[Rfam]
Rfam assigns this 200-nucleotide RNA sequence from Rosa chinensis to the family "MIR159 microRNA precursor family". Rfam 15.1 lists 3,649 matches to the family in 242 species.
RNA sequence: GGGUCCAGUUGGGGGCUCCUCUUCACUGCAACGCUAAAAGGAGGUGACGGUAGACCACGGCUGCUGGUUCAUGAAUACCCUUGAGUGCCCACGAAAGCUAUGGGCAUGUGGCCAUUCUAAGGGUUUGCAUGAGCUAGGAGACGAAGGCUAUACCUUGAUCUUUUGGGAUUGUGGUGAAGAGAGCUCCCACUGGUCUUCCU
Numbered sequence: 001g002g003g004u005c006c007a008g009u010u011g012g013g014g015g016c017u018c019c020u021c022u023u024c025a026c027u028g029c030a031a032c033g034c035u036a037a038a039a040g041g042a043g044g045u046g047a048c049g050g051u052a053g054a055c056c057a058c059g060g061c062u063g064c065u066g067g068u069u070c071a072u073g074a075a076u077a078c079c080c081u082u083g084a085g086u087g088c089c090c091a092c093g094a095a096a097g098c099u100a101u102g103g104g105c106a107u108g109u110g111g112c113c114a115u116u117c118u119a120a121g122g123g124u125u126u127g128c129a130u131g132a133g134c135u136a137g138g139a140g141a142c143g144a145a146g147g148c149u150a151u152a153c154c155u156u157g158a159u160c161u162u163u164u165g166g167g168a169u170u171g172u173g174g175u176g177a178a179g180a181g182a183g184c185u186c187c188c189a190c191u192g193g194u195c196u197u198c199c200u
Stems, first nucleotide, its partner, number of pairs: 013186006020180002024176007037163001061140002064137003070131004078123001
Dot-bracket structure: ............((((((.((..(((((((......(.......................((.(((...((((....(............................................)....))))...))).))......................)......)))))))..))))))))..............